[Rfam]
RNA sequence: GUCAAAGGUGGUGCGGCACCAUAAGUGCAGCAUCGUAUGCGCAAUACCUAAAACGAAGACGGUAGACAAG
Numbered sequence: 001g002u003c004a005a006a007g008g009u010g011g012u013g014c015g016g017c018a019c020c021a022u023a024a025g026u027g028c029a030g031c032a033u034c035g036u037a038u039g040c041g042c043a044a045u046a047c048c049u050a051a052a053a054c055g056a057a058g059a060c061g062g063u064a065g066a067c068a069a070g
Stems, first nucleotide, its partner, number of pairs: 009035006016028004

This 70-nucleotide RNA from Pseudomonas sp. TTU2014-080ASC belongs to the Rfam family "sucC RNA".